[Rfam]
Shown here is a 101-nucleotide RNA, a member of the family "PreQ1-III (pre queuosine) riboswitch aptamer".
RNA sequence: GAGAAACUUAGGAUUUUAGGCUCCGCUGCCGGCUGCUGGUCGGCAGCGCAAACCCCGCAAGGCUGGCGGUCUUGCGCGUGGUCAAAAUCUAUCCGCCGGAG
Numbered sequence: 001g002a003g004a005a006a007c008u009u010a011g012g013a014u015u016u017u018a019g020g021c022u023c024c025g026c027u028g029c030c031g032g033c034u035g036c037u038g039g040u041c042g043g044c045a046g047c048g049c050a051a052a053c054c055c056c057g058c059a060a061g062g063c064u065g066g067c068g069g070u071c072u073u074g075c076g077c078g079u080g081g082u083c084a085a086a087a088u089c090u091a092u093c094c095g096c097c098g099g100a101g
Stems, first nucleotide, its partner, number of pairs: 001023003011090006024048009052082003055078001056076007
The sequence is in the family's curated seed alignment.
On this family, see McCown et al., Chem Biol 2014: "Structural, functional, and taxonomic diversity of three preQ1 riboswitch classes".